[Rfam]
RNA sequence: AUUUGAGCGGUUCUUUCUCGGACUGUCCGACCUGAGAAUGGUGAAUUCAGGCUCAAUCUCAGGUUCGUCAGCCCAUGAAACACUGACUCACC
Numbered sequence: 001a002u003u004u005g006a007g008c009g010g011u012u013c014u015u016u017c018u019c020g021g022a023c024u025g026u027c028c029g030a031c032c033u034g035a036g037a038a039u040g041g042u043g044a045a046u047u048c049a050g051g052c053u054c055a056a057u058c059u060c061a062g063g064u065u066c067g068u069c070a071g072c073c074c075a076u077g078a079a080a081c082a083c084u085g086a087c088u089c090a091c092c
Base pairs, nucleotide, nucleotide: 005089006088007087008085009084010083011082014080015079016078017077020074021073023071024070025069027067029065030064031063032062033061034060035059036058037057039055040054
Dot-bracket structure: ....(((((((..((((..((.(((.(.(((((((((.((.............)).))))))))).).))).))..)))).)))).)))...

Notes: Rfam assigns this 92-nucleotide sequence from Scophthalmus maximus to the family "mir-1388 microRNA precursor family". Gene Ontology terms of the family: RISC complex and miRNA-mediated post-transcriptional gene silencing. Taxonomically the source falls in Scophthalmus (Eukaryota, Metazoa, Neoteleostei, Pleuronectiformes).